[Rfam]
RNA: mir-454 microRNA precursor family
Organism: Muraenolepis orangiensis
RNA sequence: CUCUAGCUGCCUCGGGGUCCAGACCCUAUCAAUGUUGCCUCUGCUUUCCAUAGCUCUAACGGAGUAGUGCAAUAUUGCUUAUAGGGUCUGGACCCUGAGGGAAG
Number, nucleotide and partner (000 for none) at each position: 001c000002u000003c000004u000005a000006g000007c000008u000009g000010c000011c000012u000013c000014g000015g000016g000017g000018u000019c000020c090021a089022g088023a087024c086025c085026c084027u083028a082029u081030c077031a076032a075033u074034g073035u072036u071037g070038c069039c000040u000041c067042u066043g065044c064045u063046u000047u000048c000049c000050a000051u000052a000053g000054c000055u000056c000057u000058a000059a000060c000061g000062g000063a045064g044065u043066a042067g041068u000069g038070c037071a036072a035073u034074a033075u032076u031077g030078c000079u000080u000081a029082u028083a027084g026085g025086g024087u023088c022089u021090g020091g000092a000093c000094c000095c000096u000097g000098a000099g000100g000101g000102a000103a000104g000